[Rfam]
RNA sequence: AAGCAGGCGAUGAUGAAGACAAUAGUCAUGCACCACUCUGAUGAGGUUUCUCGUCUCAUGUGCUGACAACAAGUCUUAUUAUACCCAUCUCCUUCUGAGCCGCUU
Numbered sequence: 001a002a003g004c005a006g007g008c009g010a011u012g013a014u015g016a017a018g019a020c021a022a023u024a025g026u027c028a029u030g031c032a033c034c035a036c037u038c039u040g041a042u043g044a045g046g047u048u049u050c051u052c053g054u055c056u057c058a059u060g061u062g063c064u065g066a067c068a069a070c071a072a073g074u075c076u077u078a079u080u081a082u083a084c085c086c087a088u089c090u091c092c093u094u095c096u097g098a099g100c101c102g103c104u105u
Base pairs, nucleotide, nucleotide: 001105002104003103004102

Small nucleolar RNA Z221/R21b: a 105-nucleotide RNA from Ensete ventricosum. Lineage of the source: Eukaryota > Spermatophyta > Liliopsida > commelinids > Ensete. It is annotated as a C/D-box small nucleolar RNA. The match comes from Rfam's covariance-model search (56 bits).